[Rfam]
RNA sequence: AGGUACUCCCGAGUCUCGCCACGGAUGGCGGUGAUAGGGAUAACGGCUGGUUGGCACAGCCAGCGGUUCGCCUGUUCGACCGUAGUGAGGGCCGUUUCGCCCCACGAGAACAGGUUGUGAACCACGAACCGUAAUAUCCCAACUCAGCGGUGCGGUGCCGUGGGAUUCCCGCGUUGACGAGA
Numbered sequence: 001a002g003g004u005a006c007u008c009c010c011g012a013g014u015c016u017c018g019c020c021a022c023g024g025a026u027g028g029c030g031g032u033g034a035u036a037g038g039g040a041u042a043a044c045g046g047c048u049g050g051u052u053g054g055c056a057c058a059g060c061c062a063g064c065g066g067u068u069c070g071c072c073u074g075u076u077c078g079a080c081c082g083u084a085g086u087g088a089g090g091g092c093c094g095u096u097u098c099g100c101c102c103c104a105c106g107a108g109a110a111c112a113g114g115u116u117g118u119g120a121a122c123c124a125c126g127a128a129c130c131g132u133a134a135u136a137u138c139c140c141a142a143c144u145c146a147g148c149g150g151u152g153c154g155g156u157g158c159c160g161u162g163g164g165a166u167u168c169c170c171g172c173g174u175u176g177a178c179g180a181g182a
Stems, first nucleotide, its partner, number of pairs: 003044002007040004013035003016031006045061005065123005071114007089103003093099001137165004172179002
RNA: Sense overlapping transcript RNA 0042 (sot)
Organism: Halogeometricum borinquense